[Rfam]
RNA sequence: AGUUCUGGUGCACCGAAUUUUGCAGGUGGAGAACGAGGAGACAAUGAGGCACUCAGUGCCCAUACAAAAGCGCUGUUGGAUCUAGUCCAACAGCGCUUUUUA
Numbered sequence: 001a002g003u004u005c006u007g008g009u010g011c012a013c014c015g016a017a018u019u020u021u022g023c024a025g026g027u028g029g030a031g032a033a034c035g036a037g038g039a040g041a042c043a044a045u046g047a048g049g050c051a052c053u054c055a056g057u058g059c060c061c062a063u064a065c066a067a068a069a070g071c072g073c074u075g076u077u078g079g080a081u082c083u084a085g086u087c088c089a090a091c092a093g094c095g096c097u098u099u100u101u102a
Base pairs, nucleotide, nucleotide: 002034003033004032005031009030011028012027013026014025015023017021038065044063045062046061048060049059050058051057052056067099068098069097070096071095072094073093074092075091076090077089078088079087080086

This 102-nucleotide sequence from Paraburkholderia diazotrophica belongs to the Rfam family "Burkholderia sRNA 1".
Its family is annotated with bacterial biofilm matrix in the Gene Ontology.
Rfam's curators write: Identified by RNA-seq, RACE and Northern blot. Strongly expressed in biofilm.
Lineage of the source: Bacteria > Pseudomonadati > Burkholderiales > Burkholderiaceae > Paraburkholderia.
A search with the family's covariance model found it, with a score of 90 bits.
The base pairs follow the family's consensus structure, which was predicted with RNAfold.